Background:
A member of the RNA family "Plastid-ycf3 group II-D1 intron" from Ziziphus jujuba, 47 nucleotides long. Rfam's curators write: Plastid rpl16 is a non-coding RNA (ncRNA) recognised in plastids. It was recognised in and intronic region of a ribosome rpl16 gene. The organism belongs to Ziziphus, within Eukaryota. A search with the family's covariance model found it, with a score of 61 bits. The base pairs follow the family's consensus structure, which was predicted with LocARNA. Rfam links the family to the GO term Group II intron splicing. On this family, see Richter et al., Plant Commun 2023: "Retrograde signaling in plants: A critical review focusing on the GUN pathway and beyond".

RNA sequence: AGCCCUUUUGUCAUGUAUCCUCGAUUAAUGCAGCCUCAGAUGCUUCA
Dot-bracket structure: .........(((..........)))......(((.......)))...
Numbered sequence: 001a002g003c004c005c006u007u008u009u010g011u012c013a014u015g016u017a018u019c020c021u022c023g024a025u026u027a028a029u030g031c032a033g034c035c036u037c038a039g040a041u042g043c044u045u046c047a
Stems, first nucleotide, its partner, number of pairs: 010025003032044003